[Rfam]
RNA sequence: AAUCCCGCCAAAGGGGAGUAGCGUCCGGUUUUUACCGGAAACAAAGUCGUCAUUACAUGGACUGAUGUUCAUCGGCUUUGUUGGCAUGAUUCUACAUAUCACAUGUCUAGCAAGACCUUUGCCAUUACAGGCAAAGGUCUUUUUUGCAUUCAUAAGCCUUUGUCUGUUGUG
Numbered sequence: 001a002a003u004c005c006c007g008c009c010a011a012a013g014g015g016g017a018g019u020a021g022c023g024u025c026c027g028g029u030u031u032u033u034a035c036c037g038g039a040a041a042c043a044a045a046g047u048c049g050u051c052a053u054u055a056c057a058u059g060g061a062c063u064g065a066u067g068u069u070c071a072u073c074g075g076c077u078u079u080g081u082u083g084g085c086a087u088g089a090u091u092c093u094a095c096a097u098a099u100c101a102c103a104u105g106u107c108u109a110g111c112a113a114g115a116c117c118u119u120u121g122c123c124a125u126u127a128c129a130g131g132c133a134a135a136g137g138u139c140u141u142u143u144u145u146g147c148a149u150u151c152a153u154a155a156g157c158c159u160u161u162g163u164c165u166g167u168u169g170u171g
Base pairs, nucleotide, nucleotide: 025038026037027036040082041081042080043079044078045077046076047075048074049073057072058071059070060069061068085171086170087169088168089167
Dot-bracket structure: ........................(((........))).((((((((((.......(((((......)))))))))))))))..(((((.............................................................................)))))
A member of the RNA family "Manganese Mn2+ riboswitch aptamer (yybP-ykoY)" from Bacillus safensis, 171 nucleotides long. Gene Ontology term of the family: manganese ion binding. Taxonomically the source falls in Bacillus (Bacteria, Bacillati, Bacilli, Caryophanales).